[Rfam]
RNA sequence: GUGGAGUGGGAAUAAAGAGCCAACAUAAUAUGAAUGGGGAAUGCCGACAAAUCAACGUUUUUCAACUUUUGAAAUGCUUGUUUGUCAUUGAAAAUGAUAUGGUUCCCUACCAUUUUCCCUACCAAAAUUUGGUAGGGGUCUUU
Numbered sequence: 001g002u003g004g005a006g007u008g009g010g011a012a013u014a015a016a017g018a019g020c021c022a023a024c025a026u027a028a029u030a031u032g033a034a035u036g037g038g039g040a041a042u043g044c045c046g047a048c049a050a051a052u053c054a055a056c057g058u059u060u061u062u063c064a065a066c067u068u069u070u071g072a073a074a075u076g077c078u079u080g081u082u083u084g085u086c087a088u089u090g091a092a093a094a095u096g097a098u099a100u101g102g103u104u105c106c107c108u109a110c111c112a113u114u115u116u117c118c119c120u121a122c123c124a125a126a127a128u129u130u131g132g133u134a135g136g137g138g139u140c141u142u143u
Stems, first nucleotide, its partner, number of pairs: 008107005050083002053080003057077002060074005085097004116138010
About this RNA
The record is a 143-nucleotide sequence from Enterococcus faecalis, which matches "Listeria sRNA rli38" in Rfam. Taxonomically the source falls in Enterococcus faecalis (Bacteria, Bacillota, Lactobacillales, Enterococcaceae). Rfam's curators put it in the seed alignment. Pairs were carried over by alignment from the consensus structure, which was predicted with RNAalifold.